[Rfam]
RNA sequence: GCUGGGACCGGUUGGGACCAGUGAUGGGCAAAAUAAAAAUGAUUUUGUCCACUGUUGCAGUCUUCCUAGAGUAAAGUGGAGGUCUCUGUCUGCUUUAGGACAGCCACUAAAUCAGAUCGUUCCCCUCCUCACACG
Number, nucleotide and partner (000 for none) at each position: 001g000002c000003u000004g066005g065006g064007a000008c000009c060010g000011g058012u057013u000014g000015g000016g000017a000018c000019c000020a000021g000022u000023g053024a000025u051026g050027g049028g048029c047030a000031a000032a044033a043034u042035a000036a000037a000038a000039a000040u000041g000042a034043u033044u032045u000046u000047g029048u028049c027050c026051a025052c000053u023054g000055u000056u000057g012058c011059a000060g009061u000062c000063u000064u006065c005066c004067u000068a000069g000070a000071g000072u000073a000074a000075a000076g000077u000078g128079g127080a126081g125082g124083u000084c000085u000086c119087u000088g117089u116090c115091u000092g113093c000094u111095u110096u109097a108098g107099g000100a000101c000102a000103g000104c000105c000106a000107c098108u097109a096110a095111a094112u000113c092114a000115g090116a089117u088118c000119g086120u000121u000122c000123c000124c082125c081126u080127c079128c078129u000130c000131a000132c000133a000134c000135g000
This 135-nucleotide RNA sequence from Hirundo rustica belongs to the Rfam family "Small Cajal body specific RNA 3". Rfam's curators write: scaRNAs are a specific class of small nuclear RNAs which localise to the Cajal bodies and guide the modification of RNA polymerase II transcribed spliceosomal RNAs U1, U2, U4, U5 and U12. It scores 98 bits against the family's covariance model. Rfam classes the family as a small Cajal body RNA.